The record is a 137-nucleotide RNA sequence from Planctomycetales bacterium ZRK34, which matches "SAM riboswitch aptamer (S box leader)" in Rfam. Gene Ontology term of the family: regulation of gene expression. Pairs were carried over by alignment from the consensus structure, which is taken from published work.
[Rfam]
RNA sequence: GUCUUAUCAAGAGCGGCGGAGGGACUGGCCCUGUGAAGCCGCGGCAACCGUUCGGAGCAUCCCCCAGAAGGACUCCGGAGCCAGGUGCCAAUUCCAGCUCUGCAGCCUGUCGGACAGGCCGCGGGGGCAGAUAAGCG
Number, nucleotide and partner (000 for none) at each position: 001g000002u000003c135004u134005u133006a132007u131008c130009a000010a000011g000012a000013g042014c041015g040016g039017c038018g000019g000020a000021g031022g030023g029024a000025c097026u096027g095028g094029c023030c022031c021032u000033g000034u000035g000036a000037a000038g017039c016040c015041g014042c013043g089044g088045c087046a086047a000048c085049c084050g081051u080052u079053c078054g000055g000056a000057g000058c000059a000060u000061c000062c000063c000064c000065c000066a000067g000068a000069a000070g000071g000072a000073c000074u000075c000076c000077g000078g053079a052080g051081c050082c000083a000084g049085g048086u046087g045088c044089c043090a000091a000092u000093u129094c028095c027096a026097g025098c126099u125100c124101u123102g122103c121104a000105g000106c000107c000108u000109g000110u000111c000112g000113g000114a000115c000116a000117g000118g000119c000120c000121g103122c102123g101124g100125g099126g098127g000128c000129a093130g008131a007132u006133a005134a004135g003136c000137g000